[Rfam]
RNA sequence: AUAUUGAUACUUCUGUCCAGUCACAGCCCCCACAAGACCUGGGGACCACGCAAUGAGGGCAGCCAGCGGAGAUCCCGGUGGAGGUGAGAUUCCUAUGA
Numbered sequence: 001a002u003a004u005u006g007a008u009a010c011u012u013c014u015g016u017c018c019a020g021u022c023a024c025a026g027c028c029c030c031c032a033c034a035a036g037a038c039c040u041g042g043g044g045a046c047c048a049c050g051c052a053a054u055g056a057g058g059g060c061a062g063c064c065a066g067c068g069g070a071g072a073u074c075c076c077g078g079u080g081g082a083g084g085u086g087a088g089a090u091u092c093c094u095a096u097g098a
Stems, first nucleotide, its partner, number of pairs: 012095001013062006063081003067077003082094003
Dot-bracket structure: ...........(((((((......................................))))))(((.(((.....))).)))(((.......))))...
The family of this 98-nucleotide RNA sequence is "pemK RNA". Rfam classes the family as a cis-regulatory element. It is one of the family's seed sequences.